[Rfam]
RNA sequence: AGCAUUAUUACCGCCAUUCCAGCAGUGGCGGGUUAGCCUACGAAUUCCCAGAAAACCCGCCCUCGAGGCGGGUUUU
Dot-bracket structure: ..........(((((((.......))))))).....................(((((((((.....))))))))).
The record is a 76-nucleotide RNA from Bordetella parapertussis, which matches "Pseudomonas sRNA P9" in Rfam. For this family Rfam cites "Identification of 17 Pseudomonas aeruginosa sRNAs and prediction of sRNA-encoding genes in 10 diverse pathogens using the bioinformatic tool sRNAPredict2" (Livny et al., Nucleic Acids Res, 2006). About the family: This small RNA (sRNA) was computationally identified in the genome of the opportunistic pathogen Pseudomonas aeruginosa and its expression verified by northern blot analysis. Taxonomically the source falls in Bordetella (Bacteria, Pseudomonadati, Betaproteobacteria, Alcaligenaceae). Rfam's curators put it in the seed alignment. Rfam classes the family as a non-coding RNA gene. The base pairs follow the family's consensus structure, which was predicted with RNAalifold.